[Rfam]
RNA sequence: ACCCUAAAGAUUAAUAACUAGUUGUGUUCCUAUUAACUUUUUAAUAGAAACCACCUCCUUACCAGUCCAAUCUCCCUUGGACUGGUUUCUUU
Numbered sequence: 001a002c003c004c005u006a007a008a009g010a011u012u013a014a015u016a017a018c019u020a021g022u023u024g025u026g027u028u029c030c031u032a033u034u035a036a037c038u039u040u041u042u043a044a045u046a047g048a049a050a051c052c053a054c055c056u057c058c059u060u061a062c063c064a065g066u067c068c069a070a071u072c073u074c075c076c077u078u079g080g081a082c083u084g085g086u087u088u089c090u091u092u
Stems, first nucleotide, its partner, number of pairs: 046059002049056001061087001062085009
Dot-bracket structure: .............................................((.(......).)).((((((((((......))))))))).).....